[Rfam]
RNA: Archaeal large subunit ribosomal RNA, nucleotides 1 to 554
RNA sequence: UUGGCCCAAAAACAACCCCUUGGCGAUGGUAGCCACGGCACGCGGUGGUUGGAAGCACUAGCUCCUUAAAAACCGCUGUGGGCAAGCCUCGUCGACGGGGAGCAAAAGACCCUGACGCAAGCGUCCUCACAAAGCGACCCCAGGUCAGGCGGGAACACCCGCUGAGUUUAAGCAUAUCAAUAAGCGGAGGAAAAGAAACUUACAAGGAUUCCCUUAGUAACGGCGAGCGAACCGGGAAGAGCCCAGCUUGAGAAUCGGUCGCCCUCGGCGUCCGAAUUGUAGUCUGGAGAAGCGUCCUCAGCGGCGGACCGGGCCCAAGUCCCCUGGAAGGGGGCGCCGGAGAGGGUGAGAGCCCCGUCGUGCCCGGACCCUGUCGCACCACGAGGCGCUGUCGGCGAGUCGGGUUGUUUGGGAAUGCAGCCCAAAUCGGGCGGUAAAUUCCGUCCAAGGCUAAAUACGGGCGAGAGACCGAUAGCGAACAAGUACCGCGAGGGAAAGAUGAAAAGGACUUUGAAAAGAGAGUCAAAGAGUGCUUGAAAUUGUCGGGAGGGAAG
Numbered sequence: 001u002u003g004g005c006c007c008a009a010a011a012a013c014a015a016c017c018c019c020u021u022g023g024c025g026a027u028g029g030u031a032g033c034c035a036c037g038g039c040a041c042g043c044g045g046u047g048g049u050u051g052g053a054a055g056c057a058c059u060a061g062c063u064c065c066u067u068a069a070a071a072a073c074c075g076c077u078g079u080g081g082g083c084a085a086g087c088c089u090c091g092u093c094g095a096c097g098g099g100g101a102g103c104a105a106a107a108g109a110c111c112c113u114g115a116c117g118c119a120a121g122c123g124u125c126c127u128c129a130c131a132a133a134g135c136g137a138c139c140c141c142a143g144g145u146c147a148g149g150c151g152g153g154a155a156c157a158c159c160c161g162c163u164g165a166g167u168u169u170a171a172g173c174a175u176a177u178c179a180a181u182a183a184g185c186g187g188a189g190g191a192a193a194a195g196a197a198a199c200u201u202a203c204a205a206g207g208a209u210u211c212c213c214u215u216a217g218u219a220a221c222g223g224c225g226a227g228c229g230a231a232c233c234g235g236g237a238a239g240a241g242c243c244c245a246g247c248u249u250g251a252g253a254a255u256c257g258g259u260c261g262c263c264c265u266c267g268g269c270g271u272c273c274g275a276a277u278u279g280u281a282g283u284c285u286g287g288a289g290a291a292g293c294g295u296c297c298u299c300a301g302c303g304g305c306g307g308a309c310c311g312g313g314c315c316c317a318a319g320u321c322c323c324c325u326g327g328a329a330g331g332g333g334g335c336g337c338c339g340g341a342g343a344g345g346g347u348g349a350g351a352g353c354c355c356c357g358u359c360g361u362g363c364c365c366g367g368a369c370c371c372u373g374u375c376g377c378a379c380c381a382c383g384a385g386g387c388g389c390u391g392u393c394g395g396c397g398a399g400u401c402g403g404g405u406u407g408u409u410u411g412g413g414a415a416u417g418c419a420g421c422c423c424a425a426a427u428c429g430g431g432c433g434g435u436a437a438a439u440u441c442c443g444u445c446c447a448a449g450g451c452u453a454a455a456u457a458c459g460g461g462c463g464a465g466a467g468a469c470c471g472a473u474a475g476c477g478a479a480c481a482a483g484u485a486c487c488g489c490g491a492g493g494g495a496a497a498g499a500u501g502a503a504a505a506g507g508a509c510u511u512u513g514a515a516a517a518g519a520g521a522g523u524c525a526a527a528g529a530g531u532g533c534u535u536g537a538a539a540u541u542g543u544c545g546g547g548a549g550g551g552a553a554g
Base pairs, nucleotide, nucleotide: 017547018546019545022544023543024542025541026540032534034498037470038469039467041465043463044462045458049105050104051103053067054066055065073098074097075096077094078093079091080090081089110114138151140149141148158189159187160186161185162184163183169176170175199206200205210237211236212235213234221227240452241451242450243449248282249281250280258269259268260267261266291390292389293388294387301382303380304379313364315362319335321334322333323332324331338342344356345355346354402423403422404421405420406419407418408417429446430445431444432443433442486493487492